[Rfam]
RNA: Plastid-psbA-1 3UTR RNA
RNA sequence: UUGAAGUUCCAUCUCUAAAUGGAUAAUAUUUCGGUUUUAGUGUAGGGUUUUUGAUUUGAGGAAAAAGGAGCAAUACCAACUUUCUUGAUAUAAAGAAGAAAUUGGCCAUUGCUCCUUUUUU
Number, nucleotide and partner (000 for none) at each position: 001u000002u000003g000004a000005a000006g000007u000008u023009c022010c021011a020012u019013c000014u000015c000016u000017a000018a000019a012020u011021g010022g009023a008024u000025a000026a000027u000028a000029u000030u000031u000032c000033g000034g000035u000036u000037u000038u000039a000040g000041u000042g000043u000044a000045g000046g000047g000048u000049u000050u000051u000052u000053g000054a000055u000056u000057u000058g000059a000060g000061g000062a000063a000064a118065a117066a116067g115068g114069a113070g112071c111072a110073a109074u108075a000076c000077c000078a000079a103080c000081u000082u100083u099084c098085u097086u096087g000088a000089u000090a000091u000092a000093a000094a000095g000096a086097a085098g084099a083100a082101a000102u000103u079104g000105g000106c000107c000108a074109u073110u072111g071112c070113u069114c068115c067116u066117u065118u064119u000120u000121u000